[Rfam]
A member of the RNA family "tRNA" from Opitutus sp. ER46, 73 nucleotides long.
From the family's description: Transfer RNA (tRNA) molecules are approximately 80 nucleotides in length. Their secondary structure includes four short double-helical elements and three loops (D, anti-codon, and T loops). Further hydrogen bonds mediate the characteristic L-shaped molecular structure. tRNAs have two regions of fundamental functional importance: the anti-codon, which is responsible for specific mRNA codon recognition, and the 3' end, to which the tRNAs corresponding amino acid is attached (by aminoacyl-tRNA synthetases). tRNAs cope with the degeneracy of the genetic code in two manners: having more than one tRNA (with a specific anti-codon) for a particular amino acid; and 'wobble' base-pairing, i.e. permitting non-standard base-pairing at the 3rd anti-codon position.
Lineage of the source: Bacteria > Pseudomonadati > Opitutia > Opitutales > Opitutus.
It scores 53 bits against the family's covariance model.
Rfam classes the family as a transfer RNA.
RNA sequence: GUCCCCGUAGCUCAAGUGGAUAGAGCCCGCGUUUCCUAAACGUGUUAUCCGAGUUCGAGUCUCGGCGGGGGCA
Numbered sequence: 001g002u003c004c005c006c007g008u009a010g011c012u013c014a015a016g017u018g019g020a021u022a023g024a025g026c027c028c029g030c031g032u033u034u035c036c037u038a039a040a041c042g043u044g045u046u047a048u049c050c051g052a053g054u055u056c057g058a059g060u061c062u063c064g065g066c067g068g069g070g071g072c073a
Base pairs, nucleotide, nucleotide: 001072002071003070004069005068006067007066010026011025012024013023028044029043030042031041032040049065050064051063052062053061